[Rfam]
RNA sequence: UGAACCGCGGCUUGGGAGAGCUUGUGCGGUUCGCAGGAUCCACGGUCCGCCUGGGAGGGCGGGUCGCGGAAACCAGGGGAGAUUAACCGGUGGAGAAUACAGGCCUCAUCGGACUUUCGCGGCAAAUGACGCUGG
Numbered sequence: 001u002g003a004a005c006c007g008c009g010g011c012u013u014g015g016g017a018g019a020g021c022u023u024g025u026g027c028g029g030u031u032c033g034c035a036g037g038a039u040c041c042a043c044g045g046u047c048c049g050c051c052u053g054g055g056a057g058g059g060c061g062g063g064u065c066g067c068g069g070a071a072a073c074c075a076g077g078g079g080a081g082a083u084u085a086a087c088c089g090g091u092g093g094a095g096a097a098u099a100c101a102g103g104c105c106u107c108a109u110c111g112g113a114c115u116u117u118c119g120c121g122g123c124a125a126a127u128g129a130c131g132c133u134g135g
Stems, first nucleotide, its partner, number of pairs: 001033008009022005039070003043066002048061005087112005093107003
A member of the RNA family "flg-Rhizobiales RNA" from Tardiphaga sp., 135 nucleotides long. Rfam classes the family as a cis-regulatory element.